[Rfam]
RNA sequence: CCCAGUGCUAGUCAGCUACCCAUUGCUGCUCAGUGCCUGUGAUAGUGUUAUGUUGCUGGGAGAGAAAGGCGCUGCCAAUCCCCUCCUGGCACCACCCGUGCUGUUCUGGUGCUGUGUGGUGCCAGGUUUUGGCAGCACCCUGCAUACCUGAGAGUGGAGUAACUCCUGCUCUGUGGAGUUAAUCCUAGAUUGGAUGCAGACAAU
Numbered sequence: 001c002c003c004a005g006u007g008c009u010a011g012u013c014a015g016c017u018a019c020c021c022a023u024u025g026c027u028g029c030u031c032a033g034u035g036c037c038u039g040u041g042a043u044a045g046u047g048u049u050a051u052g053u054u055g056c057u058g059g060g061a062g063a064g065a066a067a068g069g070c071g072c073u074g075c076c077a078a079u080c081c082c083c084u085c086c087u088g089g090c091a092c093c094a095c096c097c098g099u100g101c102u103g104u105u106c107u108g109g110u111g112c113u114g115u116g117u118g119g120u121g122c123c124a125g126g127u128u129u130u131g132g133c134a135g136c137a138c139c140c141u142g143c144a145u146a147c148c149u150g151a152g153a154g155u156g157g158a159g160u161a162a163c164u165c166c167u168g169c170u171c172u173g174u175g176g177a178g179u180u181a182a183u184c185c186u187a188g189a190u191u192g193g194a195u196g197c198a199g200a201c202a203a204u
Stems, first nucleotide, its partner, number of pairs: 001060007009052001011051002015046004020041001021039002025036002069138001071136007085126009095116001097114001099111004140199006147192001156185003160181007

Background
Shown here is a 204-nucleotide RNA sequence from Halcyon senegalensis, a member of the family "Small nucleolar RNA SNORA74". From the family's description: U19 belongs to the H/ACA class of snoRNAs. snoRNAs bind a number of proteins (including dyskerin, Gar1p and Nop10p in the case of the H/ACA class) to form snoRNP complexes. This class are thought to guide the sites of modification of uridines to pseudouridines by forming direct base pairing interactions with substrate RNAs. Targets may include ribosomal and spliceosomal RNAs but the exact functions of many snoRNAs, including U19, are not confirmed. Co-precipitation of U19 snoRNA with RNase MRP RNA suggests that U19 may be involved in pre-rRNA processing. NCBI's taxonomy places the organism under Eukaryota, Opisthokonta, Coelurosauria, Alcedinidae, Halcyon. Pairs were carried over by alignment from the consensus structure, which was predicted with PFOLD. Clan: SNORA74 clan. Gene Ontology terms of the family: nucleolus and RNA processing. A search with the family's covariance model found it, with a score of 118 bits. It is annotated as an H/ACA-box small nucleolar RNA. On this family, see Bortolin and Kiss, RNA 1998: "Human U19 intron-encoded snoRNA is processed from a long primary transcript that possesses little potential for protein coding". The family has 24 seed sequences and 1,348 matches in Rfam 15.1.